[Rfam]
RNA: Guanidine-II riboswitch aptamer (mini-ykkC)
Organism: Roseibium aggregatum
RNA sequence: CGUUGAGGACGACCUCAUAUGUGGAAAUAACAAAGCGGGACGACCCGC
Numbered sequence: 001c002g003u004u005g006a007g008g009a010c011g012a013c014c015u016c017a018u019a020u021g022u023g024g025a026a027a028u029a030a031c032a033a034a035g036c037g038g039g040a041c042g043a044c045c046c047g048c
Stems, first nucleotide, its partner, number of pairs: 001021003004017005035048005